Shown here is a 103-nucleotide sequence from Ceyx cyanopectus, a member of the family "mir-223 microRNA precursor family". Taxonomically the source falls in Ceyx (Eukaryota, Eumetazoa, Deuterostomia, Sauria). Pairs were carried over by alignment from the consensus structure, which was predicted with RNAalifold. It scores 94 bits against the family's covariance model. The family has 27 seed sequences and 674 matches in Rfam 15.1.
RNA sequence: CGAGGGAGCUGCAGUGCAGCGCUGCGUGUAUUUGACAAGCUGAGUUCGACACUCAGUGGGCAGUGUCAGUUUGUCAAAUACCCCAAGUGAGGCACUUGCUGAG
Numbered sequence: 001c002g003a004g005g006g007a008g009c010u011g012c013a014g015u016g017c018a019g020c021g022c023u024g025c026g027u028g029u030a031u032u033u034g035a036c037a038a039g040c041u042g043a044g045u046u047c048g049a050c051a052c053u054c055a056g057u058g059g060g061c062a063g064u065g066u067c068a069g070u071u072u073g074u075c076a077a078a079u080a081c082c083c084c085a086a087g088u089g090a091g092g093c094a095c096u097u098g099c100u101g102a103g
Stems, first nucleotide, its partner, number of pairs: 020089004026083001028081014048067004053062001
Dot-bracket structure: ...................((((..(.((((((((((((((......((((.(........).)))))))))))))))))).)..))))..............